RNA sequence: GUGUUUUCAUGGUAUUAGAUUUAAGGUUAAGAAACGCGGGGCUGUCGAGAUGACAGCCCCGCGUUUUGUUUUGUC
Dot-bracket structure: .......................................(((((((.....))))))).................